Background:
A member of the RNA family "RAGATH-10 RNA", 90 nucleotides long. It is annotated as a small RNA.
RNA sequence: GAAACCUCAUCUUGCUCAAGCGCCAUCCGGGCGCCAGGGCAGUGUUUCCUAAGGGAAAGCACAGACACUCCGUCUAGGUAAGGAGAAAGA
Numbered sequence: 001g002a003a004a005c006c007u008c009a010u011c012u013u014g015c016u017c018a019a020g021c022g023c024c025a026u027c028c029g030g031g032c033g034c035c036a037g038g039g040c041a042g043u044g045u046u047u048c049c050u051a052a053g054g055g056a057a058a059g060c061a062c063a064g065a066c067a068c069u070c071c072g073u074c075u076a077g078g079u080a081a082g083g084a085g086a087a088a089g090a
Stems, first nucleotide, its partner, number of pairs: 005083003009079004015039003020034005042062003045058005063075004